Rfam assigns this 119-nucleotide sequence from Carnobacterium iners to the family "PyrR binding site". The family's RNA type in Rfam is cis-regulatory element.
RNA sequence: GGUACCUUUAAAAUCAGUCCAGAGAGGCUGACAAGGUUUGCACUGUCUAUUGAGGCAGUGUUGUACUGCUGUACGUAUACGCAGACUCCUUGUCGUUUUUUGACAAGGGGUCUUUUUGU
Numbered sequence: 001g002g003u004a005c006c007u008u009u010a011a012a013a014u015c016a017g018u019c020c021a022g023a024g025a026g027g028c029u030g031a032c033a034a035g036g037u038u039u040g041c042a043c044u045g046u047c048u049a050u051u052g053a054g055g056c057a058g059u060g061u062u063g064u065a066c067u068g069c070u071g072u073a074c075g076u077a078u079a080c081g082c083a084g085a086c087u088c089c090u091u092g093u094c095g096u097u098u099u100u101u102g103a104c105a106a107g108g109g110g111u112c113u114u115u116u117u118g119u
Stems, first nucleotide, its partner, number of pairs: 004037005014031006040061009083113013